RNA sequence: AUACCUUUCUCGGCCUUUUGGCUAAGAUCAAGUGUAGUAUCUGUUCUUAUCAGUUUAAUAACUGAUAUGUAGGUCAUCGGCCUACACGAUAUUAACUAAAUAUUUUAAGGGGGAGAGUCCGUUAAGGUAGCUUGCUACUUGGGCUCUCAAGCAUCGCCCAUGCAUUGCACUAUUGCAUGUGCCUGGCGCACCCCAA
Numbered sequence: 001a002u003a004c005c006u007u008u009c010u011c012g013g014c015c016u017u018u019u020g021g022c023u024a025a026g027a028u029c030a031a032g033u034g035u036a037g038u039a040u041c042u043g044u045u046c047u048u049a050u051c052a053g054u055u056u057a058a059u060a061a062c063u064g065a066u067a068u069g070u071a072g073g074u075c076a077u078c079g080g081c082c083u084a085c086a087c088g089a090u091a092u093u094a095a096c097u098a099a100a101u102a103u104u105u106u107a108a109g110g111g112g113g114a115g116a117g118u119c120c121g122u123u124a125a126g127g128u129a130g131c132u133u134g135c136u137a138c139u140u141g142g143g144c145u146c147u148c149a150a151g152c153a154u155c156g157c158c159c160a161u162g163c164a165u166u167g168c169a170c171u172a173u174u175g176c177a178u179g180u181g182c183c184u185g186g187c188g189c190a191c192c193c194c195a196a
Stems, first nucleotide, its partner, number of pairs: 008027003012023004048067006069085007113148008127138004151189002154186003159179005
Source information: Shown here is a 196-nucleotide RNA from Anisodus acutangulus, a member of the family "U2 spliceosomal RNA". It scores 166 bits against the family's covariance model. The source organism's lineage runs through Eukaryota, Streptophytina, Gunneridae, lamiids and Anisodus. On this family, see Thomas et al., Nucleic Acids Res 1990: "The spliceosomal snRNAs of Caenorhabditis elegans". Rfam 15.1 lists 71,512 matches to the family in 2,642 species. The family's consensus secondary structure is taken from published work.